[Rfam]
RNA sequence: UGCGUCCGUCGCGACUGGCGCCGGGUGGAGGACCACCGGGGAGCGGCACGAGGAUCGAGACCACGGGGUCGCCCGCCUGGGCCACGGGU
Number, nucleotide and partner (000 for none) at each position: 001u000002g000003c052004g000005u050006c000007c000008g047009u046010c045011g044012c043013g000014a000015c040016u039017g077018g076019c075020g074021c000022c000023g000024g000025g036026u035027g034028g033029a000030g000031g000032a000033c028034c027035a026036c025037c000038g000039g016040g015041g000042a000043g012044c011045g010046g009047c008048a000049c000050g005051a000052g003053g000054a000055u000056c000057g000058a000059g000060a000061c000062c000063a000064c000065g000066g000067g083068g082069u081070c080071g000072c000073c000074c020075g019076c018077c017078u000079g000080g070081g069082c068083c067084a000085c000086g000087g000088g000089u000
ZMP/ZTP riboswitch aptamer (pfl RNA motif): an 89-nucleotide RNA sequence from Actinomyces sp. 2119. NCBI's taxonomy places the organism under Bacteria, Bacillati, Actinomycetes, Actinomycetaceae, Actinomyces. A search with the family's covariance model found it, with a score of 46 bits. The base pairs follow the family's consensus structure, which is taken from published work.